MIR5298 microRNA precursor family: an 80-nucleotide sequence from Medicago truncatula. Rfam links the family to the GO terms RISC complex and miRNA-mediated post-transcriptional gene silencing.
RNA sequence: UUAGGUUUUCUUCAUUUUCUUCUGAGAUUUUUGUUGUUGAAGGUUGAUGGAGAUGAUAUGAAAAUGAAAAAUAAGAGAAG
Dot-bracket structure: .....(.((.(((((((((......(((((((......)))))))..............))))))))).)).).......